[Rfam]
RNA sequence: CUGUAGUGAUGAGCUGAAUAUCUGUGUACCGGAGGCGGCCCCUUUUGUGGUUUGUCGGUGACGGUCACAUACACCUCUAAGAAGUUCUGAACAG
Numbered sequence: 001c002u003g004u005a006g007u008g009a010u011g012a013g014c015u016g017a018a019u020a021u022c023u024g025u026g027u028a029c030c031g032g033a034g035g036c037g038g039c040c041c042c043u044u045u046u047g048u049g050g051u052u053u054g055u056c057g058g059u060g061a062c063g064g065u066c067a068c069a070u071a072c073a074c075c076u077c078u079a080a081g082a083a084g085u086u087c088u089g090a091a092c093a094g
Stems, first nucleotide, its partner, number of pairs: 001094004

Rfam assigns this 94-nucleotide RNA sequence from Punica granatum to the family "Small nucleolar RNA U61". The family's RNA type in Rfam is C/D-box small nucleolar RNA. NCBI's taxonomy places the organism under Eukaryota, Euphyllophyta, Spermatophyta, eudicotyledons, Punica. The family's consensus secondary structure was predicted with WAR.